Shown here is a 56-nucleotide sequence, a member of the family "Mu-gpT-DE RNA". It is one of the family's seed sequences.
[Rfam]
RNA sequence: CCCUGACUACCCGCAAUAUCGUAGGUAGACAUUAGCCACGACAGGAGAUUCUCAUG
Numbered sequence: 001c002c003c004u005g006a007c008u009a010c011c012c013g014c015a016a017u018a019u020c021g022u023a024g025g026u027a028g029a030c031a032u033u034a035g036c037c038a039c040g041a042c043a044g045g046a047g048a049u050u051c052u053c054a055u056g
Base pairs, nucleotide, nucleotide: 002045003044004043005042007028008027009026010025011024